This 119-nucleotide RNA from Desulfofarcimen acetoxidans belongs to the Rfam family "Ribosomal protein L20 leader". A search with the family's covariance model found it, with a score of 68 bits. The family's RNA type in Rfam is cis-regulatory leader.
[Rfam]
RNA sequence: UUUACAAAGUAGAAGUUGCCGCUUCUCACCUUAAAACGCCUUGAGCUGUUACUAAGGUAUUUUAAAAAAUAUGGACUUUUGUCUGUUAAGCGGGCUUUUGCCUGCUUUUUUAAUUUUUU
Number, nucleotide and partner (000 for none) at each position: 001u000002u000003u000004a000005c000006a000007a000008a000009g000010u000011a026012g025013a024014a023015g022016u021017u000018g000019c000020c000021g016022c015023u014024u013025c012026u011027c000028a058029c057030c056031u000032u000033a000034a000035a050036a049037c048038g046039c045040c000041u000042u000043g000044a000045g039046c038047u000048g037049u036050u035051a000052c000053u000054a000055a000056g030057g029058u028059a000060u000061u000062u000063u000064a000065a000066a000067a000068a000069a000070u000071a000072u000073g000074g000075a000076c000077u000078u000079u000080u000081g000082u000083c000084u000085g000086u000087u000088a000089a106090g105091c104092g103093g102094g101095c100096u000097u000098u000099u000100g095101c094102c093103u092104g091105c090106u089107u000108u000109u000110u000111u000112a000113a000114u000115u000116u000117u000118u000119u000
The base pairs follow the family's consensus structure, which was predicted with CMfinder.